This 600-nucleotide part of an RNA from Hyphomonas chukchiensis belongs to the Rfam family "Bacterial small subunit ribosomal RNA".
Clan: SSU clan.
A reference for the family is Yusupov et al. (2001), "Crystal structure of the ribosome at 5.5 A resolution", Science.
It scores 1536 bits against the family's covariance model.

[Rfam]
RNA sequence: UGACGGGGGCCCGCACAAGCGGUGGAGCAUGUGGUUUAAUUCGAAGCAACGCGCAGAACCUUACCUACCCUUGACAUGUCCAGUAUGGUUUCCAGAGAUGGAUCCCUUCAGUUAGGCUGGCUGGAACACAGGUGCUGCAUGGCUGUCGUCAGCUCGUGUCGUGAGAUGUUGGGUUAAGUCCCGCAACGAGCGCAACCCUCAUCCUUAGUUGCCAUCACGUUUGGGUGGGCACUCUAAGGAAACUGCCGGUGGCAAGCCGGAGGAAGGUGGGGAUGACGUCAAGUCCUCAUGGCCCUUACGGGUAGGGCUACACACGUGCUACAAUGGCAGUGACAAUGGGAUAAUCCCCAAAAACUGUCUCAGUUCGGAUUGUCGUCUGCAACUCGACGGCAUGAAGGUGGAAUCGCUAGUAAUCGUGGAUCAGCAUGCCACGGUGAAUACGUUCCCGGGCCUUGUACACACCGCCCGUCACAUCAUGGGAAUUGGUUCUACCCGAAGAUCGUGUGCUAACUUCGGAGGCAGCGAGCCACGGUAGGAUCAGUGACUGGGAUGAAGUCGUAACAAGGUAGCCGUAGGGGAACCUGCGGCUGGAUCACCUCC
Numbered sequence: 001u002g003a004c005g006g007g008g009g010c011c012c013g014c015a016c017a018a019g020c021g022g023u024g025g026a027g028c029a030u031g032u033g034g035u036u037u038a039a040u041u042c043g044a045a046g047c048a049a050c051g052c053g054c055a056g057a058a059c060c061u062u063a064c065c066u067a068c069c070c071u072u073g074a075c076a077u078g079u080c081c082a083g084u085a086u087g088g089u090u091u092c093c094a095g096a097g098a099u100g101g102a103u104c105c106c107u108u109c110a111g112u113u114a115g116g117c118u119g120g121c122u123g124g125a126a127c128a129c130a131g132g133u134g135c136u137g138c139a140u141g142g143c144u145g146u147c148g149u150c151a152g153c154u155c156g157u158g159u160c161g162u163g164a165g166a167u168g169u170u171g172g173g174u175u176a177a178g179u180c181c182c183g184c185a186a187c188g189a190g191c192g193c194a195a196c197c198c199u200c201a202u203c204c205u206u207a208g209u210u211g212c213c214a215u216c217a218c219g220u221u222u223g224g225g226u227g228g229g230c231a232c233u234c235u236a237a238g239g240a241a242a243c244u245g246c247c248g249g250u251g252g253c254a255a256g257c258c259g260g261a262g263g264a265a266g267g268u269g270g271g272g273a274u275g276a277c278g279u280c281a282a283g284u285c286c287u288c289a290u291g292g293c294c295c296u297u298a299c300g301g302g303u304a305g306g307g308c309u310a311c312a313c314a315c316g317u318g319c320u321a322c323a324a325u326g327g328c329a330g331u332g333a334c335a336a337u338g339g340g341a342u343a344a345u346c347c348c349c350a351a352a353a354a355c356u357g358u359c360u361c362a363g364u365u366c367g368g369a370u371u372g373u374c375g376u377c378u379g380c381a382a383c384u385c386g387a388c389g390g391c392a393u394g395a396a397g398g399u400g401g402a403a404u405c406g407c408u409a410g411u412a413a414u415c416g417u418g419g420a421u422c423a424g425c426a427u428g429c430c431a432c433g434g435u436g437a438a439u440a441c442g443u444u445c446c447c448g449g450g451c452c453u454u455g456u457a458c459a460c461a462c463c464g465c466c467c468g469u470c471a472c473a474u475c476a477u478g479g480g481a482a483u484u485g486g487u488u489c490u491a492c493c494c495g496a497a498g499a500u501c502g503u504g505u506g507c508u509a510a511c512u513u514c515g516g517a518g519g520c521a522g523c524g525a526g527c528c529a530c531g532g533u534a535g536g537a538u539c540a541g542u543g544a545c546u547g548g549g550a551u552g553a554a555g556u557c558g559u560a561a562c563a564a565g566g567u568a569g570c571c572g573u574a575g576g577g578g579a580a581c582c583u584g585c586g587g588c589u590g591g592a593u594c595a596c597c598u599c600c
Base pairs, nucleotide, nucleotide: 001459002458003456004455005454007453008452009451010450011449012448013447015443016442019407020406021405022404023403024322026320027319028318029317030316031315032314033313034311035310040055042053043052064306065305066304067303068302069301070300077128078127079125080124081123082122083121087106088105091102092101093100094099108120109119110118111117131295132294134293135292136291137290140289141288142284143283144282145280147278148277152191153190154189155188156187157186158167159166160165170183171182172181173180197272198271199270200269202240203239204238205237206236207235208234212229213228216227217226218225243263244262246260247259248258249257250256326359327358328357329356330355331354338348339347340346366397371392372391373390374389375388376387377386413435414434415433416432417431418430419429462565464562467558468557472552473551474550475549477547478546479545482542483541484540485539486538487537488536489535490534491533492532493531498527500525501524502523503522505521506520507519508518511516567590568589569588570587571586572585573584574583575582576581